Notes: This 57-nucleotide RNA from Viola websteri belongs to the Rfam family "Plastid-ccsA-ndhD-1 3UTR RNA". Rfam's curators write: Plastid-ccsA-ndhD-1 is a non-coding RNA (ncRNA) recognised in plastids. It was found in the three prime untranslated region (3UTR) of ccsA and ndhD genes, its 3UTR location suggests a role in transcript maturation. Its Rfam clan is "Plastid-ccsA_ndhD 3UTR RNA clan". Rfam's curators put it in the seed alignment. Rfam classes the family as a cis-regulatory element. The literature on the family includes a 2023 paper in Plant Commun by Richter et al., "Retrograde signaling in plants: A critical review focusing on the GUN pathway and beyond". The organism belongs to Viola subsect. Rostratae, within Eukaryota.
RNA sequence: AGUUGUUGAGAACUUUUUGAAUCAGGUAAUGUAAGGAUUCAAAAAGUUCUCACAAAU
Numbered sequence: 001a002g003u004u005g006u007u008g009a010g011a012a013c014u015u016u017u018u019g020a021a022u023c024a025g026g027u028a029a030u031g032u033a034a035g036g037a038u039u040c041a042a043a044a045a046g047u048u049c050u051c052a053c054a055a056a057u
Stems, first nucleotide, its partner, number of pairs: 007052017